[Rfam]
RNA: mir-367 microRNA precursor family
Organism: Xenopus laevis
RNA sequence: CAGCUACUAUUGCCCCUGUGCAAACUCUGUUCUAUAUUAUCUAGAAUUGCACUGUAGCAAUGGUGACUG
Numbered sequence: 001c002a003g004c005u006a007c008u009a010u011u012g013c014c015c016c017u018g019u020g021c022a023a024a025c026u027c028u029g030u031u032c033u034a035u036a037u038u039a040u041c042u043a044g045a046a047u048u049g050c051a052c053u054g055u056a057g058c059a060a061u062g063g064u065g066a067c068u069g
Base pairs, nucleotide, nucleotide: 005065006064007063008062009061010060011059012058013057016054019051020050021049022048023047026045027044028043029042